[Rfam]
RNA sequence: CUCUUAUCUAGAGUGGUCGAGGGACUGGCCCGAUGACACCCAGCAACCGGUAGCUAUGCUGCAGUGGUGCUAAUUCCAGCAGGAGGAAUCCUGACAGAUAAGAG
Numbered sequence: 001c002u003c004u005u006a007u008c009u010a011g012a013g014u015g016g017u018c019g020a021g022g023g024a025c026u027g028g029c030c031c032g033a034u035g036a037c038a039c040c041c042a043g044c045a046a047c048c049g050g051u052a053g054c055u056a057u058g059c060u061g062c063a064g065u066g067g068u069g070c071u072a073a074u075u076c077c078a079g080c081a082g083g084a085g086g087a088a089u090c091c092u093g094a095c096a097g098a099u100a101a102g103a104g
Stems, first nucleotide, its partner, number of pairs: 001104008013041001015040003021031003025079004042071004047067002050062003075096001080093005

The family of this 104-nucleotide RNA from Sporomusa malonica is "SAM riboswitch aptamer (S box leader)".